[Rfam]
The family of this 93-nucleotide RNA from Dichanthelium oligosanthes is "small nucleolar RNA snoR126". Rfam 15.1 lists 423 matches to the family in 200 species. A search with the family's covariance model found it, with a score of 66 bits.
RNA sequence: UGGCUGGGAUGACAACAACAUACGUUUCUCGAUCCUGAAACUUGAUAUGUUCAAGGACCAAACUUUGAUGACCUUUGUGCGUGUCUGAGCCAG
Numbered sequence: 001u002g003g004c005u006g007g008g009a010u011g012a013c014a015a016c017a018a019c020a021u022a023c024g025u026u027u028c029u030c031g032a033u034c035c036u037g038a039a040a041c042u043u044g045a046u047a048u049g050u051u052c053a054a055g056g057a058c059c060a061a062a063c064u065u066u067g068a069u070g071a072c073c074u075u076u077g078u079g080c081g082u083g084u085c086u087g088a089g090c091c092a093g
Stems, first nucleotide, its partner, number of pairs: 001092004
The base pairs follow the family's consensus structure, which was predicted with RNAalifold.